[Rfam]
RNA sequence: GGGUAAAUGAUUAUCUUUAUAUUGUUUGAAGAGAGGUGAUGACUUAAAAUGAUGCUCAGUAGGAUUACACUGAGGUCC
Numbered sequence: 001g002g003g004u005a006a007a008u009g010a011u012u013a014u015c016u017u018u019a020u021a022u023u024g025u026u027u028g029a030a031g032a033g034a035g036g037u038g039a040u041g042a043c044u045u046a047a048a049a050u051g052a053u054g055c056u057c058a059g060u061a062g063g064a065u066u067a068c069a070c071u072g073a074g075g076u077c078c
Stems, first nucleotide, its partner, number of pairs: 001078004006071001008069002
A member of the RNA family "Small nucleolar RNA SNORD115" from Carlito syrichta, 78 nucleotides long. Taxonomically the source falls in Carlito (Eukaryota, Eumetazoa, Mammalia, Theria). Rfam 15.1 lists 3,387 matches to the family in 131 species. By type it is a C/D-box small nucleolar RNA. It scores 66 bits against the family's covariance model. The family's consensus secondary structure was predicted with PFOLD. A reference for the family is Cavaille et al. (2000), "Identification of brain-specific and imprinted small nucleolar RNA genes exhibiting an unusual genomic organization", Proc Natl Acad Sci U S A.